This 179-nucleotide RNA sequence from Pelagimonas varians belongs to the Rfam family "Ruegeria cis52 sRNA". Rfam classes the family as a small RNA. The family's consensus secondary structure was predicted with RNAfold.
Nucleotides: 179
Stems, first nucleotide, its partner, number of pairs: 005140002008137005014131002016128002020125002028123002038113001040111001042109001046105001048103001050101003054097001055075008082096005145179003148175005154165004
Number, partner (000 for none) and nucleotide at each position: 001000u002000g003000c004000g005140c006139a007000a008137u009136g010135c011134g012133u013000g014131u015130u016128u017127g018000a019000u020125c021124a022000c023000a024000a025000c026000g027000u028123u029122g030000c031000c032000a033000a034000a035000g036000c037000u038113c039000a040111c041000a042109c043000c044000c045000u046105u047000u048103a049000g050101c051100c052099g053000g054097g055075c056074g057073g058072u059071g060070c061069g062068a063000a064000u065000g066000u067000a068062u069061u070060g071059u072058g073057c074056c075055g076000u077000c078000a079000u080000a081000a082096c083095u084094u085093c086092g087000g088000c089000c090000a091000u092086c093085g094084a095083g096082g097054c098000g099052c100051g101050g102000g103048u104000c105046a106000u107000u108000c109042g110000g111040g112000c113038g114000a115000u116000a117000u118000a119000c120000c121000c122029c123028a124021u125020g126000c127017c128016g129000u130015a131014a132000a133012g134011c135010g136009c137008g138000a139006u140005g141000g142000u143000c144000a145179g146178g147177a148175c149174c150173g151172g152171u153000a154165a155164a156163a157162a158000g159000a160000a161000g162157u163156u164155u165154u166000c167000g168000a169000a170000g171152g172151u173150c174149g175148g176000a177147u178146u179145u